Description
The record is a 94-nucleotide RNA sequence from Canis lupus, which matches "mir-8799 microRNA precursor family" in Rfam. The family has 7 seed sequences and 20,638 matches in Rfam 15.1. The organism belongs to Canis lupus, within Eukaryota. The match comes from Rfam's covariance-model search (56 bits).

RNA sequence: CGGAGGAGCGUAGGAACGUGGGCUGUGACCCCUGGCGCCCUGGGCUCUGGGGCCUGCGCCGCUGGAAUCGCGGUCUUGGGCCACACAGCCCCCU
Numbered sequence: 001c002g003g004a005g006g007a008g009c010g011u012a013g014g015a016a017c018g019u020g021g022g023c024u025g026u027g028a029c030c031c032c033u034g035g036c037g038c039c040c041u042g043g044g045c046u047c048u049g050g051g052g053c054c055u056g057c058g059c060c061g062c063u064g065g066a067a068u069c070g071c072g073g074u075c076u077u078g079g080g081c082c083a084c085a086c087a088g089c090c091c092c093c094u
Stems, first nucleotide, its partner, number of pairs: 002093002005090002010086002013082002017079001020076003024072004031065002033061006042054001044053003